[Rfam]
RNA sequence: CUUGUUGAAGGCGCGCGCCUGAUGGCCUAUAUCGGUCGUCGCCGGCUUGCCGGCUAUGGCGAUAAACUGCGGCGUGUCAUAGGCGCAGCGGACCCGGGGGCAGUACCCGGCGGCUCCACCAGAAGCUCGUUUCGACGGGUUCCUGACGGGGCCGAACCAGGAUCGACGUGUGUUGAAAAGCGCAGCUUUCGCUCGGAAUGGGACCACCGUGACGGCCCAUACACAAGUGCCAACGAUAACGAGGCGCUCGCGAUUGCGGCCUAACCCAGGACCUCACGGUCUAGGUUAGUUCUGACAAAAGCGCGGUCCGGGCCGCACCGGGCAACAGAAGCGGAUUCC
Numbered sequence: 001c002u003u004g005u006u007g008a009a010g011g012c013g014c015g016c017g018c019c020u021g022a023u024g025g026c027c028u029a030u031a032u033c034g035g036u037c038g039u040c041g042c043c044g045g046c047u048u049g050c051c052g053g054c055u056a057u058g059g060c061g062a063u064a065a066a067c068u069g070c071g072g073c074g075u076g077u078c079a080u081a082g083g084c085g086c087a088g089c090g091g092a093c094c095c096g097g098g099g100g101c102a103g104u105a106c107c108c109g110g111c112g113g114c115u116c117c118a119c120c121a122g123a124a125g126c127u128c129g130u131u132u133c134g135a136c137g138g139g140u141u142c143c144u145g146a147c148g149g150g151g152c153c154g155a156a157c158c159a160g161g162a163u164c165g166a167c168g169u170g171u172g173u174u175g176a177a178a179a180g181c182g183c184a185g186c187u188u189u190c191g192c193u194c195g196g197a198a199u200g201g202g203a204c205c206a207c208c209g210u211g212a213c214g215g216c217c218c219a220u221a222c223a224c225a226a227g228u229g230c231c232a233a234c235g236a237u238a239a240c241g242a243g244g245c246g247c248u249c250g251c252g253a254u255u256g257c258g259g260c261c262u263a264a265c266c267c268a269g270g271a272c273c274u275c276a277c278g279g280u281c282u283a284g285g286u287u288a289g290u291u292c293u294g295a296c297a298a299a300a301g302c303g304c305g306g307u308c309c310g311g312g313c314c315g316c317a318c319c320g321g322g323c324a325a326c327a328g329a330a331g332c333g334g335a336u337u338c339c
Stems, first nucleotide, its partner, number of pairs: 041054005058193005069186002072183004084172003088169003094110005111154007194209003199219003204215002304320004310337002313334002
RNA: Alphaproteobacteria transfer-messenger RNA